[Rfam]
RNA sequence: GGCUUUUUUCGCCCAGGCGGAGCUCGACCGCAUACCGAGGUGAUGGUGCGGUUUAUUGACGAGCAUCGUCAUAUCUGCGGGGUCGAGCCGAUCUGCGCUUUAUUGCCGAUCGCCCCG
Numbered sequence: 001g002g003c004u005u006u007u008u009u010c011g012c013c014c015a016g017g018c019g020g021a022g023c024u025c026g027a028c029c030g031c032a033u034a035c036c037g038a039g040g041u042g043a044u045g046g047u048g049c050g051g052u053u054u055a056u057u058g059a060c061g062a063g064c065a066u067c068g069u070c071a072u073a074u075c076u077g078c079g080g081g082g083u084c085g086a087g088c089c090g091a092u093c094u095g096c097g098c099u100u101u102a103u104u105g106c107c108g109a110u111c112g113c114c115c116c117g
Stems, first nucleotide, its partner, number of pairs: 017031004078117005089112002092109002095106003
Dot-bracket structure: ................((((.......))))..............................................(((((......((.((.(((......))).)).)))))))
The family of this 117-nucleotide sequence from Dethiosulfatarculus sandiegensis is "ALIL pseudoknot".
NCBI's taxonomy places the organism under Bacteria, Pseudomonadati, Thermodesulfobacteriota, Desulfarculaceae, Dethiosulfatarculus.
For this family Rfam cites "Apical loop-internal loop RNA pseudoknots: a new type of stimulator of -1 translational frameshifting in bacteria" (Mazauric et al., J Biol Chem, 2008).
A search with the family's covariance model found it, with a score of 100 bits.